A member of the RNA family "tRNA", 72 nucleotides long. It is annotated as a transfer RNA. The base pairs follow the family's consensus structure, which is taken from published work. From the family's description: Transfer RNA (tRNA) molecules are approximately 80 nucleotides in length. Rfam's curators put it in the seed alignment.
Nucleotides: 072
Base pairs, nucleotide, nucleotide: 001071002070003069004068005067006066007065010024011023012022013021027041028040029039030038048064049063050062051061052060
Number, partner (000 for none) and nucleotide at each position: 001071a002070g003069g004068g005067c006066u007065a008000u009000a010024g011023c012022u013021c014000a015000g016000c017000g018000g019000u020000a021013g022012a023011g024010c025000g026000c027041c028040u029039c030038g031000u032000u033000u034000a035000c036000a037000c038030c039029g040028a041027g042000a043000a044000u045000g046000u047000c048064u049063a050062c051061g052060g053000u054000u055000c056000a057000a058000a059000u060052c061051c062050g063049u064048a065007u066006a067005g068004c069003c070002c071001u072000a